The family of this 97-nucleotide RNA from Hathewaya histolytica is "Purine riboswitch aptamer". It scores 63 bits against the family's covariance model. Gene Ontology term of the family: purine nucleobase biosynthetic process. Lineage of the source: Bacteria > Bacillati > Bacillota > Clostridiaceae > Hathewaya. Riboswitches are metabolite binding domains within certain messenger RNAs that serve as precision sensors for their corresponding targets. Allosteric rearrangement of mRNA structure is mediated by ligand binding, and this results in modulation of gene expression. A class of riboswitches that selectively recognises guanine and becomes saturated at concentrations as low as 5 nM. In Bacillus subtilis, this mRNA motif is located on at least five separate transcriptional units that together encode 17 genes that are mostly involved in purine transport and purine nucleotide biosynthesis. It has also been shown that some members of this family are specific for adenine instead.
[Rfam]
RNA sequence: AUACAAAUGAAUAAAACUUUUCAUAUAAUCUCUAAAUAAGGUAGGGAGUCUCUACAGGAACCGUAAAUUCCACACUAUGAAAAGAGCCUUUAGUUAG
Numbered sequence: 001a002u003a004c005a006a007a008u009g010a011a012u013a014a015a016a017c018u019u020u021u022c023a024u025a026u027a028a029u030c031u032c033u034a035a036a037u038a039a040g041g042u043a044g045g046g047a048g049u050c051u052c053u054a055c056a057g058g059a060a061c062c063g064u065a066a067a068u069u070c071c072a073c074a075c076u077a078u079g080a081a082a083a084g085a086g087c088c089u090u091u092a093g094u095u096a097g
Stems, first nucleotide, its partner, number of pairs: 018083008029047006057071004